This 81-nucleotide RNA from Hepatocystis sp. ex Piliocolobus tephrosceles belongs to the Rfam family "small nucleolar RNA snoR22". The pairing is the family consensus, mapped onto this sequence. The family has 3 seed sequences and 34 matches in Rfam 15.1. Its family is annotated with RNA processing and nucleolus in the Gene Ontology. The match comes from Rfam's covariance-model search (69 bits).
[Rfam]
RNA sequence: UUUUAAUGAUGAUAAAUUGUUUAUUUGCAAGUAGGGACAUGAGAAUAUAAAAUGUGUUCGCUUUUACAUUUUCUGAAAAAA
Numbered sequence: 001u002u003u004u005a006a007u008g009a010u011g012a013u014a015a016a017u018u019g020u021u022u023a024u025u026u027g028c029a030a031g032u033a034g035g036g037a038c039a040u041g042a043g044a045a046u047a048u049a050a051a052a053u054g055u056g057u058u059c060g061c062u063u064u065u066a067c068a069u070u071u072u073c074u075g076a077a078a079a080a081a
Base pairs, nucleotide, nucleotide: 001081002080003079004078